[Rfam]
RNA sequence: GCCCAGAUGAUCUUCGGUGGUCCGGUGUGCAGGCUUCAAACCUGUAGCCGCCUAGCAGCGGAGUGGUUCGAUUCCACCUUCUGGGC
Numbered sequence: 001g002c003c004c005a006g007a008u009g010a011u012c013u014u015c016g017g018u019g020g021u022c023c024g025g026u027g028u029g030c031a032g033g034c035u036u037c038a039a040a041c042c043u044g045u046a047g048c049c050g051c052c053u054a055g056c057a058g059c060g061g062a063g064u065g066g067u068u069c070g071a072u073u074c075c076a077c078c079u080u081c082u083g084g085g086c
Stems, first nucleotide, its partner, number of pairs: 001086007009078001012027001014025004028046006048061004063077004
This 86-nucleotide sequence from Tigriopus californicus belongs to the Rfam family "Selenocysteine transfer RNA". The family's consensus secondary structure is taken from published work. Its Rfam clan is "tRNA clan".